[Rfam]
The family of this 57-nucleotide sequence from Ligilactobacillus salivarius is "salivarius-1 RNA".
Rfam classes the family as a small RNA.
RNA sequence: ACCUUGUAUCCACGAUAUUUUGAGUUGGUCUUACGCUUUGAGAACGUAGCAAGGUAU
Numbered sequence: 001a002c003c004u005u006g007u008a009u010c011c012a013c014g015a016u017a018u019u020u021u022g023a024g025u026u027g028g029u030c031u032u033a034c035g036c037u038u039u040g041a042g043a044a045c046g047u048a049g050c051a052a053g054g055u056a057u
Stems, first nucleotide, its partner, number of pairs: 001055007010028003013024001023039001030042001032048004037043001